[Rfam]
RNA sequence: ACUCAUAUGUGUAAAUAACACACACAUGUCGACACGUUCACCGGGGUGUUCGAAGGUCAAUGUCUUAUGACGUGGCUGAAGGGUCGGUGUAAUGGGGCAUGUGGAGGCUUAAC
Dot-bracket structure: ......................((((((((....((((.((((....((((.............................))))))))..)))).))))))))..........